This 100-nucleotide RNA sequence from Budvicia aquatica belongs to the Rfam family "Gammaprotebacteria rimP leader".
The source organism's lineage runs through Bacteria, Pseudomonadota, Gammaproteobacteria, Budviciaceae and Budvicia.
Rfam links the family to the GO term regulation of gene expression.
[Rfam]
RNA sequence: AAUAGCUUACUUAAAUAUAGGGUCCAGUUGCAAAAGCCCCGACUUAUCGGGGUUUUUUGUUAUUUGACAGCAAAAUCACUGGGCUAUAGGCCCUUUUUUU
Numbered sequence: 001a002a003u004a005g006c007u008u009a010c011u012u013a014a015a016u017a018u019a020g021g022g023u024c025c026a027g028u029u030g031c032a033a034a035a036g037c038c039c040c041g042a043c044u045u046a047u048c049g050g051g052g053u054u055u056u057u058u059g060u061u062a063u064u065u066g067a068c069a070g071c072a073a074a075a076u077c078a079c080u081g082g083g084c085u086a087u088a089g090g091c092c093c094u095u096u097u098u099u100u
Base pairs, nucleotide, nucleotide: 033056034055035054036053037052038051039050040049041048081093082092083091084090